[Rfam]
RNA sequence: AAAUGACAACUGUGUCAGAUGAUCAAAACUGUCUGUCAGAAUCUGUUAUUCUUGCCAAGAAGAAAGUCUAACCUAUUUCAGUAUUCUCACCUCAGUAAGAUAAGCUGUUAUAUAGCCUUAAAAAAA
Numbered sequence: 001a002a003a004u005g006a007c008a009a010c011u012g013u014g015u016c017a018g019a020u021g022a023u024c025a026a027a028a029c030u031g032u033c034u035g036u037c038a039g040a041a042u043c044u045g046u047u048a049u050u051c052u053u054g055c056c057a058a059g060a061a062g063a064a065a066g067u068c069u070a071a072c073c074u075a076u077u078u079c080a081g082u083a084u085u086c087u088c089a090c091c092u093c094a095g096u097a098a099g100a101u102a103a104g105c106u107g108u109u110a111u112a113u114a115g116c117c118u119u120a121a122a123a124a125a126a
Base pairs, nucleotide, nucleotide: 009046010045011040013038014037016035017034018033019032020031021030064119065118066117068115069114070113074112075111076110079107080106081105082104087100088099

Record summary: The family of this 126-nucleotide RNA from Chrysochloris asiatica is "Small nucleolar RNA SNORA28". Clan: SNORA28 clan. Lineage of the source: Eukaryota > Craniata > Vertebrata > Amniota > Chrysochloris. Rfam classes the family as an H/ACA-box small nucleolar RNA. The base pairs follow the family's consensus structure, which was predicted with RNAfold. Its family is annotated with RNA processing and nucleolus in the Gene Ontology. A reference for the family is Huttenhofer et al. (2001), "RNomics: an experimental approach that identifies 201 candidates for novel, small, non-messenger RNAs in mouse", EMBO J. ACA28 is a member of the H/ACA class of snoRNA that guide the sites of modification of uridines to pseudouridines. The family has 26 seed sequences and 922 matches in Rfam 15.1.